[Rfam]
RNA: Bacillaceae-1 RNA
Organism: Amphibacillus marinus
RNA sequence: AAGUGGGGAUGUUAGACUAAACCCGUCCAGGGACAACGUCUAACUGACUUACAUCCUGUAGG
Numbered sequence: 001a002a003g004u005g006g007g008g009a010u011g012u013u014a015g016a017c018u019a020a021a022c023c024c025g026u027c028c029a030g031g032g033a034c035a036a037c038g039u040c041u042a043a044c045u046g047a048c049u050u051a052c053a054u055c056c057u058g059u060a061g062g
Stems, first nucleotide, its partner, number of pairs: 011044007025034003048062005